Rfam assigns this 84-nucleotide RNA from Brevibacillus brevis to the family "c-di-GMP-I riboswitch aptamer". Rfam links the family to the GO term cyclic-di-GMP binding. From the family's description: GEMM was predicted in a large-scale screen for bacterial structured RNA regulatory elements. Rfam 15.1 lists 5,092 matches to the family in 1,772 species.

RNA sequence: AAAUGCAAAAGGCAAAGUCAUCGAAAGGUGGCGACGCAAAACCACGGGUCUACAGUCUUUGACCAUGAUAGCCGGGUUGCCAUC
Numbered sequence: 001a002a003a004u005g006c007a008a009a010a011g012g013c014a015a016a017g018u019c020a021u022c023g024a025a026a027g028g029u030g031g032c033g034a035c036g037c038a039a040a041a042c043c044a045c046g047g048g049u050c051u052a053c054a055g056u057c058u059u060u061g062a063c064c065a066u067g068a069u070a071g072c073c074g075g076g077u078u079g080c081c082a083u084c
Stems, first nucleotide, its partner, number of pairs: 012037002017032006040078004045074003048069003055063003